Shown here is a 59-nucleotide RNA from Alcaligenaceae bacterium 429, a member of the family "nhaA-I RNA". Taxonomically the source falls in Alcaligenaceae (Bacteria, Pseudomonadota, Betaproteobacteria, Burkholderiales). Rfam describes the family as follows. Acidobacteria, Alphaproteobacteria, Betaproteobacteria and Gammaproteobacteria, Verrucomicrobia, cand. division NC10.

RNA sequence: GGGUGUCAGCUGCAAUCCGGCAGUGAGACAGGUUCACAAGCGUUGGUCGGGCCGCCACG
Numbered sequence: 001g002g003g004u005g006u007c008a009g010c011u012g013c014a015a016u017c018c019g020g021c022a023g024u025g026a027g028a029c030a031g032g033u034u035c036a037c038a039a040g041c042g043u044u045g046g047u048c049g050g051g052c053c054g055c056c057a058c059g
Stems, first nucleotide, its partner, number of pairs: 005029003009024005041059003045056003